[Rfam]
RNA sequence: CCAAUCUCGGAAUGAAUCUGGGGGAGACGCGUAGUGAGCAUUCUGCUGAUUGUGAAACUGCGUAGGGUAGGUAUUAGUUAAGCCUUUUAACUAAUAGACGGGAUACUAAUGGUGCGAUGCAUCAUGUUAAUGGGAAACCCAACA
Numbered sequence: 001c002c003a004a005u006c007u008c009g010g011a012a013u014g015a016a017u018c019u020g021g022g023g024g025a026g027a028c029g030c031g032u033a034g035u036g037a038g039c040a041u042u043c044u045g046c047u048g049a050u051u052g053u054g055a056a057a058c059u060g061c062g063u064a065g066g067g068u069a070g071g072u073a074u075u076a077g078u079u080a081a082g083c084c085u086u087u088u089a090a091c092u093a094a095u096a097g098a099c100g101g102g103a104u105a106c107u108a109a110u111g112g113u114g115c116g117a118u119g120c121a122u123c124a125u126g127u128u129a130a131u132g133g134g135a136a137a138c139c140c141a142a143c144a
Base pairs, nucleotide, nucleotide: 006022007021008020009019010018011017029063030062031061032060033059034058035057038053039052040051072096073095074094075093076092077091078090079089080088081087110124111123112122113121114120115119
RNA: DABA-DC-AT RNA
Organism: Vibrio genomosp. F6